[Rfam]
RNA sequence: AGUUAAAUAUGGCAAACCUACCGAAAGAUAGGGACGCAAAGCCAUGGGUCUAAAGAUAGUAAGUAAUCUAAGAUUGCCAGGUUGCUCAA
Numbered sequence: 001a002g003u004u005a006a007a008u009a010u011g012g013c014a015a016a017c018c019u020a021c022c023g024a025a026a027g028a029u030a031g032g033g034a035c036g037c038a039a040a041g042c043c044a045u046g047g048g049u050c051u052a053a054a055g056a057u058a059g060u061a062a063g064u065a066a067u068c069u070a071a072g073a074u075u076g077c078c079a080g081g082u083u084g085c086u087c088a089a
Stems, first nucleotide, its partner, number of pairs: 012037002017032004022027001040083004045079003048074003055068003